[Rfam]
Rfam assigns this 109-nucleotide RNA sequence from Glycine max to the family "MIR4387 microRNA precursor family". NCBI's taxonomy places the organism under Eukaryota, Mesangiospermae, Fabales, Phaseoleae, Glycine subgen. Soja. Its Rfam clan is "MIR4387 microRNA precursor clan".

RNA sequence: GAGUGCCUCGUCGUCACGCCUUGUCACUCACACGUCAUUGUUAUGUGAUUGAAGGUGAUGACGUGACAAUGAUGUGUGAGUGAGAAGACGUGAUGACGUGGUAAUUCGU
Dot-bracket structure: ...((((.((((((((((.((..((((((((((.((((((((((((.(((......))).)))))))))))).))))))))))..)).)))))))))).))))......